RNA sequence: UCACGUACCCCGGGGAGCGAGCUUCCCCACUUCGAUGUUUCGAAAGUGGGCGAAAAAAUUCGCUGAGAGGGAUGGGUAGCGCCAUCCGACCCGUUGAACCUGAACCCGGUAAUACGGGCGGAGGGAAGGGAGCCCGAGCCGCAA
Numbered sequence: 001u002c003a004c005g006u007a008c009c010c011c012g013g014g015g016a017g018c019g020a021g022c023u024u025c026c027c028c029a030c031u032u033c034g035a036u037g038u039u040u041c042g043a044a045a046g047u048g049g050g051c052g053a054a055a056a057a058a059u060u061c062g063c064u065g066a067g068a069g070g071g072a073u074g075g076g077u078a079g080c081g082c083c084a085u086c087c088g089a090c091c092c093g094u095u096g097a098a099c100c101u102g103a104a105c106c107c108g109g110u111a112a113u114a115c116g117g118g119c120g121g122a123g124g125g126a127a128g129g130g131a132g133c134c135c136g137a138g139c140c141g142c143a144a
Stems, first nucleotide, its partner, number of pairs: 006132001008130003011093004017063005070087005099124003105118004
RNA: TPP riboswitch aptamer (THI element)